[Rfam]
RNA: Group II catalytic intron D1-D4-5
RNA sequence: AUUAACUAUACUUCUGAAAGAUGGAAUGAUGGAUUAACGACCUGAAACGUCUUCUCUAAUCUCCAGUAUGCGGUGAUAUUCUAACUAAAUAUCACGGUUUAAAGCCUGGUAAAGUCAAUUGAGAACUAUCCCUAAUCAAAGGAAAAGCGAACUUAACCGUCGAGAUAGUAAUAGAUUGGGAGUCAAAUUU
Numbered sequence: 001a002u003u004a005a006c007u008a009u010a011c012u013u014c015u016g017a018a019a020g021a022u023g024g025a026a027u028g029a030u031g032g033a034u035u036a037a038c039g040a041c042c043u044g045a046a047a048c049g050u051c052u053u054c055u056c057u058a059a060u061c062u063c064c065a066g067u068a069u070g071c072g073g074u075g076a077u078a079u080u081c082u083a084a085c086u087a088a089a090u091a092u093c094a095c096g097g098u099u100u101a102a103a104g105c106c107u108g109g110u111a112a113a114g115u116c117a118a119u120u121g122a123g124a125a126c127u128a129u130c131c132c133u134a135a136u137c138a139a140a141g142g143a144a145a146a147g148c149g150a151a152c153u154u155a156a157c158c159g160u161c162g163a164g165a166u167a168g169u170a171a172u173a174g175a176u177u178g179g180g181a182g183u184c185a186a187a188u189u190u
Base pairs, nucleotide, nucleotide: 018053019052020051021050022049023048031043032042034040054182055181056180057179063109064108065107066106067101068100070098071097073095074094075093076092077091078090079089080088116178117177118176119175120174125169126168127167128166129165130164131142132141133140148162149161150160